[Rfam]
RNA sequence: CAUGUCAGUACUGGUGAGUCUGGAUGCUGAUGAUAUGUUAGUUCCCAUCAGCUCCAAGGCUGAUCAGUAGUGAUGUG
Numbered sequence: 001c002a003u004g005u006c007a008g009u010a011c012u013g014g015u016g017a018g019u020c021u022g023g024a025u026g027c028u029g030a031u032g033a034u035a036u037g038u039u040a041g042u043u044c045c046c047a048u049c050a051g052c053u054c055c056a057a058g059g060c061u062g063a064u065c066a067g068u069a070g071u072g073a074u075g076u077g
Base pairs, nucleotide, nucleotide: 003075004074006072007071009069011067012066013065014064015063017061018060019059021057022055023054024053026052027051028050029049
Description:
The family of this 77-nucleotide sequence from Branchiostoma floridae is "mir-4868 microRNA precursor family". Rfam links the family to the GO terms miRNA-mediated post-transcriptional gene silencing and RISC complex. NCBI's taxonomy places the organism under Eukaryota, Bilateria, Leptocardii, Amphioxiformes, Branchiostoma.